[Rfam]
RNA sequence: AGCAAAGGCGUGAUUGGGUGCAGUGCUGGUGAACCUUUGAGCCAGUUUCAGACUUUCAGGCUAAUUAAUUAGCCGGCCGGCAGGUUCAUCAACGCUGCACUCAAUAAUGCCUUCC
Numbered sequence: 001a002g003c004a005a006a007g008g009c010g011u012g013a014u015u016g017g018g019u020g021c022a023g024u025g026c027u028g029g030u031g032a033a034c035c036u037u038u039g040a041g042c043c044a045g046u047u048u049c050a051g052a053c054u055u056u057c058a059g060g061c062u063a064a065u066u067a068a069u070u071a072g073c074c075g076g077c078c079g080g081c082a083g084g085u086u087c088a089u090c091a092a093c094g095c096u097g098c099a100c101u102c103a104a105u106a107a108u109g110c111c112u113u114c115c
Stems, first nucleotide, its partner, number of pairs: 006112006013105013027091002030088003
Dot-bracket structure: .....((((((.(((((((((((((.((.(((.....................................................))).)).))))))))))))).))))))...
RNA: MIR397 microRNA precursor family